Rfam assigns this 75-nucleotide sequence from Myotis davidii to the family "mir-9223 microRNA precursor family". The base pairs follow the family's consensus structure, which was predicted with RNAalifold. Gene Ontology terms of the family: miRNA-mediated post-transcriptional gene silencing and RISC complex.

RNA sequence: GGAGGUUCUCGGAUGACACACCUCAGAAUCAGGCUCCAUUCUCUCUGGUUCCAGGUGCAUCACCCAAGAACCGCC
Numbered sequence: 001g002g003a004g005g006u007u008c009u010c011g012g013a014u015g016a017c018a019c020a021c022c023u024c025a026g027a028a029u030c031a032g033g034c035u036c037c038a039u040u041c042u043c044u045c046u047g048g049u050u051c052c053a054g055g056u057g058c059a060u061c062a063c064c065c066a067a068g069a070a071c072c073g074c075c
Base pairs, nucleotide, nucleotide: 002074005071006070007069008068009067011065012064014062015061016060019057020056021055022054023053026051027050028049029048030047031046032045033044